[Rfam]
RNA sequence: CCGCCCGUCAUUGGGGAGUAGCCGCACCGAAGGUCUUUCGGUGGCUCGCGUCAACAUACUUGGCCUCACGGCCAUGGCGCGCGCGGUGUACGACUUGGCAAGACCUUUGACCAUGCAUCCGCGGUUCGGCCGGGCGGGCGCGUGGUCAACCGUCUUCGUCCGGCCGAGGAAUCC
Numbered sequence: 001c002c003g004c005c006c007g008u009c010a011u012u013g014g015g016g017a018g019u020a021g022c023c024g025c026a027c028c029g030a031a032g033g034u035c036u037u038u039c040g041g042u043g044g045c046u047c048g049c050g051u052c053a054a055c056a057u058a059c060u061u062g063g064c065c066u067c068a069c070g071g072c073c074a075u076g077g078c079g080c081g082c083g084c085g086g087u088g089u090a091c092g093a094c095u096u097g098g099c100a101a102g103a104c105c106u107u108u109g110a111c112c113a114u115g116c117a118u119c120c121g122c123g124g125u126u127c128g129g130c131c132g133g134g135c136g137g138g139c140g141c142g143u144g145g146u147c148a149a150c151c152g153u154c155u156u157c158g159u160c161c162g163g164c165c166g167a168g169g170a171a172u173c174c
Base pairs, nucleotide, nucleotide: 026042027041028040044084045083047081048080049079050078051077052076053075061074062073063072064071065070086174088172089171091169